[Rfam]
RNA sequence: UAUCCAUACGAGCCGAGUUCCGUCCGCACCAGCGGCCGGGAACGGGGGAACCACUGGGGCCGUCCACGGCCCCCGGGGCGAAUCGCCGCCAGGUGCGCGGCGUAGUGCAGGUCCAGCACGAGCCCGACAGCUAACCCCGUAGGCGUCGAGACCCAAGGA
Number, nucleotide and partner (000 for none) at each position: 001u000002a000003u000004c000005c000006a000007u000008a000009c000010g000011a000012g144013c143014c142015g000016a000017g000018u041019u040020c039021c038022g037023u000024c000025c000026g000027c000028a000029c000030c000031a000032g000033c000034g000035g000036c000037c022038g021039g020040g019041a018042a140043c139044g138045g137046g136047g135048g000049a000050a000051c000052c075053a000054c000055u000056g000057g000058g000059g000060c000061c000062g000063u000064c000065c000066a000067c000068g000069g000070c000071c000072c000073c000074c000075g052076g125077g124078g123079c000080g000081a000082a000083u000084c102085g101086c100087c099088g000089c000090c000091a000092g000093g000094u000095g000096c000097g000098c000099g087100g086101c085102g084103u000104a000105g119106u118107g117108c116109a000110g000111g000112u000113c000114c000115a000116g108117c107118a106119c105120g000121a000122g000123c078124c077125c076126g000127a000128c000129a000130g000131c000132u000133a000134a000135c047136c046137c045138c044139g043140u042141a000142g014143g013144c012145g000146u000147c000148g000149a000150g000151a000152c000153c000154c000155a000156a000157g000158g000159a000